Rfam assigns this 140-nucleotide RNA sequence from Melghirimyces profundicolus to the family "FMN riboswitch aptamer (RFN element)". A search with the family's covariance model found it, with a score of 105 bits. From the family's description: The RFN element is a highly conserved domain that is found frequently in the 5'-untranslated regions of prokaryotic mRNAs that encode for flavin mononucleotide (FMN) biosynthesis and transport proteins. Rfam links the family to the GO term FMN binding. The organism belongs to Melghirimyces, within Bacteria. Pairs were carried over by alignment from the consensus structure, which is taken from published work.

[Rfam]
RNA sequence: CGAAUCCUUCGGGGCUGGGUGAAAAUCCCGACCGGCGGUGAUGGAGAGAGAAAGACCUCCUCAGUCCGUGACCCGCGCAAGCGGUGGAUCCGGUGAAACUCCGGGGCCGACAGUGAAAGUCUGGAUGGGAGAAGGAUGUA
Numbered sequence: 001c002g003a004a005u006c007c008u009u010c011g012g013g014g015c016u017g018g019g020u021g022a023a024a025a026u027c028c029c030g031a032c033c034g035g036c037g038g039u040g041a042u043g044g045a046g047a048g049a050g051a052a053a054g055a056c057c058u059c060c061u062c063a064g065u066c067c068g069u070g071a072c073c074c075g076c077g078c079a080a081g082c083g084g085u086g087g088a089u090c091c092g093g094u095g096a097a098a099c100u101c102c103g104g105g106g107c108c109g110a111c112a113g114u115g116a117a118a119g120u121c122u123g124g125a126u127g128g129g130a131g132a133a134g135g136a137u138g139u140a
Base pairs, nucleotide, nucleotide: 004137005136006135007134008133009132010131017029018028019027031120032119033109034108035069036068037067038066064107065106073084074083089105090104091103092102093101111123112122113121